[Rfam]
The record is a 75-nucleotide RNA, which matches "ASpks TB sRNA" in Rfam. Rfam classes the family as an antisense RNA.
RNA sequence: CUUCAACGAGCCGAGGUACAGCGGCUUGUGCGGGUCGCGGCCCUGCCCGUACGUGGCGAGCAGCGCCUGUGCCUC
Numbered sequence: 001c002u003u004c005a006a007c008g009a010g011c012c013g014a015g016g017u018a019c020a021g022c023g024g025c026u027u028g029u030g031c032g033g034g035u036c037g038c039g040g041c042c043c044u045g046c047c048c049g050u051a052c053g054u055g056g057c058g059a060g061c062a063g064c065g066c067c068u069g070u071g072c073c074u075c
Stems, first nucleotide, its partner, number of pairs: 014026002017023001031071002038065002043060002047056003